[Rfam]
RNA sequence: GAAUAAGCGCAUUUGGUGGAUGCCUUGGCGAUAACAGGCGAUGAAGGACGUUGUAGUCUGCGAUAAGCCUCGGGGAGCUGACAAACAAGCUUUGAUCCGAGGAUUUCCGAAUGGGGAAACCCACCGCACUCGUGCGGUAUCCGCAUCUGAAUACAUAGGAUGUGUGAAGCGAACCCGGGGAACUGAAACAUCUAAGUACCCGGAGGAAAAGAAAUCAACCGAGAUUCCCUUAGUAGCGGCGAGCGAAAGGGGACCAGCCGAAUCAAUUAACUGUAGUGGAAGAUUCUGGAAAGUUUCGCGAAACAGGGUGAUAGCCCCGUACACGAAACGGUUAGUUGGACAUAUUAAGUAGGGCGGGGCACGUGAAACCUUGUCUGAAGAUCGGGGGACCAUCCUCGAAGGCUAAAUACUCGUUAUCGACCGAUAGUGAACCAGUACCGUGAGGGAAAGGCGAAAAGAACCCCGGAGAGGGGAGUGAAAUAGAACCUGAAACCGGAUGCGUACAAG
Numbered sequence: 001g002a003a004u005a006a007g008c009g010c011a012u013u014u015g016g017u018g019g020a021u022g023c024c025u026u027g028g029c030g031a032u033a034a035c036a037g038g039c040g041a042u043g044a045a046g047g048a049c050g051u052u053g054u055a056g057u058c059u060g061c062g063a064u065a066a067g068c069c070u071c072g073g074g075g076a077g078c079u080g081a082c083a084a085a086c087a088a089g090c091u092u093u094g095a096u097c098c099g100a101g102g103a104u105u106u107c108c109g110a111a112u113g114g115g116g117a118a119a120c121c122c123a124c125c126g127c128a129c130u131c132g133u134g135c136g137g138u139a140u141c142c143g144c145a146u147c148u149g150a151a152u153a154c155a156u157a158g159g160a161u162g163u164g165u166g167a168a169g170c171g172a173a174c175c176c177g178g179g180g181a182a183c184u185g186a187a188a189c190a191u192c193u194a195a196g197u198a199c200c201c202g203g204a205g206g207a208a209a210a211g212a213a214a215u216c217a218a219c220c221g222a223g224a225u226u227c228c229c230u231u232a233g234u235a236g237c238g239g240c241g242a243g244c245g246a247a248a249g250g251g252g253a254c255c256a257g258c259c260g261a262a263u264c265a266a267u268u269a270a271c272u273g274u275a276g277u278g279g280a281a282g283a284u285u286c287u288g289g290a291a292a293g294u295u296u297c298g299c300g301a302a303a304c305a306g307g308g309u310g311a312u313a314g315c316c317c318c319g320u321a322c323a324c325g326a327a328a329c330g331g332u333u334a335g336u337u338g339g340a341c342a343u344a345u346u347a348a349g350u351a352g353g354g355c356g357g358g359g360c361a362c363g364u365g366a367a368a369c370c371u372u373g374u375c376u377g378a379a380g381a382u383c384g385g386g387g388g389a390c391c392a393u394c395c396u397c398g399a400a401g402g403c404u405a406a407a408u409a410c411u412c413g414u415u416a417u418c419g420a421c422c423g424a425u426a427g428u429g430a431a432c433c434a435g436u437a438c439c440g441u442g443a444g445g446g447a448a449a450g451g452c453g454a455a456a457a458g459a460a461c462c463c464c465g466g467a468g469a470g471g472g473g474a475g476u477g478a479a480a481u482a483g484a485a486c487c488u489g490a491a492a493c494c495g496g497a498u499g500c501g502u503a504c505a506a507g
Stems, first nucleotide, its partner, number of pairs: 007502010022487001023451002027422002029419007036411002038170002046108003049062003068102007077090003113122003123138006140167002142164007174205001175203005185192002215222002225407001226253005236244002256404004263339012276324003282297002286293001300304001306318003352376008383398005438445002461473004